Background
Shown here is a 137-nucleotide RNA sequence from Terrisporobacter othiniensis, a member of the family "Molybdenum/Tungsten riboswitch aptamer (Moco RNA motif)". The family has 160 seed sequences and 1,248 matches in Rfam 15.1. Taxonomically the source falls in Terrisporobacter (Bacteria, Clostridia, Peptostreptococcales, Peptostreptococcaceae). The base pairs follow the family's consensus structure, which is taken from published work.
[Rfam]
RNA sequence: AAAAUUUAAUAUUCUCAAGCUAACAUAUCUAAGGAUUAAGGUCUAUGAUAUCUAGCCAGGCAAAUUAUAUUGCCUCGGGUUAAUAUGGAAACAUGCUAGCCUUCCAUUGUUUGAAAAGAGAAUUUAUUUUUAGUUAA
Numbered sequence: 001a002a003a004a005u006u007u008a009a010u011a012u013u014c015u016c017a018a019g020c021u022a023a024c025a026u027a028u029c030u031a032a033g034g035a036u037u038a039a040g041g042u043c044u045a046u047g048a049u050a051u052c053u054a055g056c057c058a059g060g061c062a063a064a065u066u067a068u069a070u071u072g073c074c075u076c077g078g079g080u081u082a083a084u085a086u087g088g089a090a091a092c093a094u095g096c097u098a099g100c101c102u103u104c105c106a107u108u109g110u111u112u113g114a115a116a117a118g119a120g121a122a123u124u125u126a127u128u129u130u131u132a133g134u135u136a137a
Stems, first nucleotide, its partner, number of pairs: 003131002011123006019056004025051005033044004059074005077102006084095004103114002